[Rfam]
RNA sequence: AAAGUAGGCCACCUUAUCGCCACACCCCCGGUGUGGAGGAAAGUCCGGACACCAUAGAGCAGCAUAGUGGAUAACACCCACCAGUCGUGAGAUUAGGACAAGUGCAACAGAAAGUAUGUACAGGUUAAGCUGUAGUGAAACCAGGUAAACUCUAUGCGGUGCAAUGCCAUGUAUACCGGCAUUUAAGGGUUGCUCGCCCGUUGUUGGAGGGUAGGCAGCUAAAGAUUCUUGGUAACAAGAAUAUGAGAUAAAUGAUAAGGAUCACUUUCUCUUCGGAGAUUGGGAAACAGAAUCCGGCUUAUCGGCCUACUUUUUUA
Numbered sequence: 001a002a003a004g005u006a007g008g009c010c011a012c013c014u015u016a017u018c019g020c021c022a023c024a025c026c027c028c029c030g031g032u033g034u035g036g037a038g039g040a041a042a043g044u045c046c047g048g049a050c051a052c053c054a055u056a057g058a059g060c061a062g063c064a065u066a067g068u069g070g071a072u073a074a075c076a077c078c079c080a081c082c083a084g085u086c087g088u089g090a091g092a093u094u095a096g097g098a099c100a101a102g103u104g105c106a107a108c109a110g111a112a113a114g115u116a117u118g119u120a121c122a123g124g125u126u127a128a129g130c131u132g133u134a135g136u137g138a139a140a141c142c143a144g145g146u147a148a149a150c151u152c153u154a155u156g157c158g159g160u161g162c163a164a165u166g167c168c169a170u171g172u173a174u175a176c177c178g179g180c181a182u183u184u185a186a187g188g189g190u191u192g193c194u195c196g197c198c199c200g201u202u203g204u205u206g207g208a209g210g211g212u213a214g215g216c217a218g219c220u221a222a223a224g225a226u227u228c229u230u231g232g233u234a235a236c237a238a239g240a241a242u243a244u245g246a247g248a249u250a251a252a253u254g255a256u257a258a259g260g261a262u263c264a265c266u267u268u269c270u271c272u273u274c275g276g277a278g279a280u281u282g283g284g285a286a287a288c289a290g291a292a293u294c295c296g297g298c299u300u301a302u303c304g305g306c307c308u309a310c311u312u313u314u315u316u317a
Base pairs, nucleotide, nucleotide: 001313002312003311004310005309006308007307008306009305010304011302012260013259014258015257016256017255018254020036021035022034023033024032025031026030041300042299043298045297046296047295048294049293050161051160052159053158057195058194059193060192062157063156064155065154066153067081068080069079070078082096083094084093085092086091097152098151102150103149104146105145119134121132122131123130165217166216167215168214176207177206178205179204180203187199188198189197190196225242226241227240228239229238230237231236

Background
A member of the RNA family "Bacterial RNase P class A" from Gillisia hiemivivida, 317 nucleotides long. Ribonuclease P (RNase P) is a ubiquitous endoribonuclease, found in archaea, bacteria and eukarya as well as chloroplasts and mitochondria. Its best characterised activity is the generation of mature 5'-ends of tRNAs by cleaving the 5'-leader elements of precursor-tRNAs. Lineage of the source: Bacteria > Pseudomonadati > Flavobacteriia > Flavobacteriales > Gillisia.